[Rfam]
RtT RNA: a 138-nucleotide RNA sequence from Motiliproteus coralliicola. Pairs were carried over by alignment from the consensus structure, which is taken from published work. The literature on the family includes a 1991 paper in Nucleic Acids Res by Bosl and Kersten, "A novel RNA product of the tyrT operon of Escherichia coli". Its family is annotated with cellular response to amino acid starvation in the Gene Ontology. This family represents a bacterial cis-regulatory element known as RtT RNA. The exact function of RtT is unknown although it is thought that it may be involved in changing the cellular response in relation to amino acid starvation.
RNA sequence: CAUGCCUCCGUACUUGGAGAGUGAGAAGCCCCGUGGGUUCGAACCGAGCGGCCAAGCCGCGACGCAACGACACCUUUAUAAGUGUUGUCUCCGAAGGAGUGAGGAGCGUAGUGACGAAUCAUCCCUCCGGGUGCACCA
Numbered sequence: 001c002a003u004g005c006c007u008c009c010g011u012a013c014u015u016g017g018a019g020a021g022u023g024a025g026a027a028g029c030c031c032c033g034u035g036g037g038u039u040c041g042a043a044c045c046g047a048g049c050g051g052c053c054a055a056g057c058c059g060c061g062a063c064g065c066a067a068c069g070a071c072a073c074c075u076u077u078a079u080a081a082g083u084g085u086u087g088u089c090u091c092c093g094a095a096g097g098a099g100u101g102a103g104g105a106g107c108g109u110a111g112u113g114a115c116g117a118a119u120c121a122u123c124c125c126u127c128c129g130g131g132u133g134c135a136c137c138a
Stems, first nucleotide, its partner, number of pairs: 015129005021123001022121001032101002038095004045061002068087006